[Rfam]
RNA sequence: AGCUUUGCGCAGUGGCAGUCAGAUAGAAUAGCAAAAUGAGGGUUAACGGAGCGUUUAUAUUGCUAGUUGAAAACUUUUCCCAAUUACACCGCCAUGAUGACUGUGAAAUACAGUCAGCAUUGGCAAUUUUUGACAGUCUCUCAGGAGG
Numbered sequence: 001a002g003c004u005u006u007g008c009g010c011a012g013u014g015g016c017a018g019u020c021a022g023a024u025a026g027a028a029u030a031g032c033a034a035a036a037u038g039a040g041g042g043u044u045a046a047c048g049g050a051g052c053g054u055u056u057a058u059a060u061u062g063c064u065a066g067u068u069g070a071a072a073a074c075u076u077u078u079c080c081c082a083a084u085u086a087c088a089c090c091g092c093c094a095u096g097a098u099g100a101c102u103g104u105g106a107a108a109u110a111c112a113g114u115c116a117g118c119a120u121u122g123g124c125a126a127u128u129u130u131u132g133a134c135a136g137u138c139u140c141u142c143a144g145g146a147g148g
Stems, first nucleotide, its partner, number of pairs: 021056004026052001041047001091124003094120003098116008137148004
Notes:
Rfam assigns this 148-nucleotide RNA sequence from Hymenochirus boettgeri to the family "U4 spliceosomal RNA". The family's RNA type in Rfam is spliceosomal small nuclear RNA. It scores 86 bits against the family's covariance model. Lineage of the source: Eukaryota > Bilateria > Craniata > Anura > Hymenochirus. From the family's description: U4 small nuclear RNA (U4 snRNA) is a component of the major U2-dependent spliceosome.